[Rfam]
RNA: Betaproteobacteria-1 RNA
RNA sequence: UCCUAUGUUGGAGGCUCUAACGACAUACCAGCGACAUAGGGAUACAGCGCUACUGGGGGUAAAGGAUGAAACAGCGCAAUAUAGGUGGCGAAGUUAGUGCCUAUUCCUUGAACGACUGACGGGU
Numbered sequence: 001u002c003c004u005a006u007g008u009u010g011g012a013g014g015c016u017c018u019a020a021c022g023a024c025a026u027a028c029c030a031g032c033g034a035c036a037u038a039g040g041g042a043u044a045c046a047g048c049g050c051u052a053c054u055g056g057g058g059g060u061a062a063a064g065g066a067u068g069a070a071a072c073a074g075c076g077c078a079a080u081a082u083a084g085g086u087g088g089c090g091a092a093g094u095u096a097g098u099g100c101c102u103a104u105u106c107c108u109u110g111a112a113c114g115a116c117u118g119a120c121g122g123g124u
Stems, first nucleotide, its partner, number of pairs: 001041010028056004047077005063108004081104006093120006